Pyrrolysine insertion sequence mttB: a 100-nucleotide RNA from Desulforhopalus singaporensis. The literature on the family includes a 2013 paper in BMC Bioinformatics by Theil Have et al., "Effects of using coding potential, sequence conservation and mRNA structure conservation for predicting pyrroly-sine containing genes". By type it is a cis-regulatory element. NCBI's taxonomy places the organism under Bacteria, Pseudomonadati, Thermodesulfobacteriota, Desulfobulbia, Desulforhopalus.
RNA sequence: GCGUCAGACAGUAAGCUAGCCGACGCUCAGAUGGCUUACGAUUUCUCCCUCACCGCAACAACAGCGGCCCUUGCGGGCGCCAACAUGAUCUUCGGCCUUG
Numbered sequence: 001g002c003g004u005c006a007g008a009c010a011g012u013a014a015g016c017u018a019g020c021c022g023a024c025g026c027u028c029a030g031a032u033g034g035c036u037u038a039c040g041a042u043u044u045c046u047c048c049c050u051c052a053c054c055g056c057a058a059c060a061a062c063a064g065c066g067g068c069c070c071u072u073g074c075g076g077g078c079g080c081c082a083a084c085a086u087g088a089u090c091u092u093c094g095g096c097c098u099u100g
Base pairs, nucleotide, nucleotide: 003012025032033062077098079096080095